Shown here is an 82-nucleotide RNA sequence from Papaver somniferum, a member of the family "Small nucleolar RNA Z102/R77".
The family is grouped with related families in Rfam's "SNORD44 clan".
NCBI's taxonomy places the organism under Eukaryota, Viridiplantae, Embryophyta, Spermatophyta, Papaver.
A search with the family's covariance model found it, with a score of 51 bits.
Gene Ontology terms of the family: nucleolus and RNA processing.
The base pairs follow the family's consensus structure, which was predicted with PFOLD.
RNA sequence: GAAUAAGGUGAUGAUUAGGUAAUUUCCCUAUUGGUUUGAUCGUCGAAAUGAUGGCUUAAUAGUUCUGUCAUUCUGAUUAUUC
Numbered sequence: 001g002a003a004u005a006a007g008g009u010g011a012u013g014a015u016u017a018g019g020u021a022a023u024u025u026c027c028c029u030a031u032u033g034g035u036u037u038g039a040u041c042g043u044c045g046a047a048a049u050g051a052u053g054g055c056u057u058a059a060u061a062g063u064u065c066u067g068u069c070a071u072u073c074u075g076a077u078u079a080u081u082c
Stems, first nucleotide, its partner, number of pairs: 002081004042055003